[Rfam]
A member of the RNA family "Archaeal signal recognition particle RNA" from Ferroglobus placidus, 313 nucleotides long.
The base pairs follow the family's consensus structure, which is taken from published work.
A search with the family's covariance model found it, with a score of 214 bits.
Rfam links the family to the GO terms signal recognition particle, plasma membrane targeting and SRP-dependent cotranslational protein targeting to membrane, signal sequence recognition.
Nucleotides: 313
Stems, first nucleotide, its partner, number of pairs: 001313008011063004015033007038059004043054001067303003073297002077293005086284009096274001100270013114256001119254007126244008134235004138230003141179001143177005149172005155166004182226006193218004201210003
Number, partner (000 for none) and nucleotide at each position: 001313u002312g003311g004310u005309g006308g007307g008306c009000u010000a011063g012062g013061c014060c015033g016032g017031g018030g019029g020028g021027u022000u023000c024000g025000g026000c027021g028020u029019c030018c031017c032016c033015u034000g035000u036000a037000a038059c039058c040057c041056g042000a043054a044000a045000c046000c047000g048000u049000c050000g051000u052000c053000a054043u055000g056041c057040g058039g059038g060014g061013g062012c063011c064000g065000a066000a067303g068302c069301c070000g071000a072000a073297g074296g075000a076000a077293g078292g079291c080290c081289c082000g083000g084000a085000a086284g087283g088282g089281c090280g091279g092278g093277g094276u095000g096274a097000a098000g099000a100270g101269c102268u103267c104266c105265u106264c107263g108262g109261g110260c111259u112258u113000g114256c115000a116000g117000a118000a119254u120253c121252u122251c123250c124249g125248u126244c127243c128242c129241g130240a131239a132238g133237g134235g135234c136233c137232g138230g139229c140228g141179g142000u143177c144176a145175c146174g147173g148000c149172u150171g151170g152169g153168c154000u155166u156165c157164c158163c159000g160000g161000a162000g163158g164157g165156g166155a167000u168153g169152u170151c171150c172149g173147c174146c175145g176144u177143g178000u179141u180000u181000g182226c183225c184224g185223g186222g187221g188000g189000g190000a191000c192000c193218g194217g195216c196215c197000c198000a199000g200000g201210c202209c203208c204000g205000g206000a207000a208203g209202g210201g211000a212000g213000c214000a215196g216195g217194c218193u219000a220000a221187c222186c223185c224184c225183g226182g227000a228140c229139g230138u231000u232137c233136g234135g235134c236000g237133c238132u239131u240130u241129c242128g243127g244126g245000g246000g247000u248125g249124c250123g251122g252121a253120g254119a255000g256114g257000a258112g259111a260110g261109u262108c263107c264106g265105a266104g267103g268102a269101g270100c271000g272000g273000a274096u275000a276094g277093c278092u279091c280090c281089g282088c283087c284086c285000g286000g287000a288000a289081g290080g291079g292078u293077c294000g295000a296074c297073c298000g299000g300000a301069g302068g303067c304000g305000c306008g307007c308006c309005c310004a311003c312002c313001a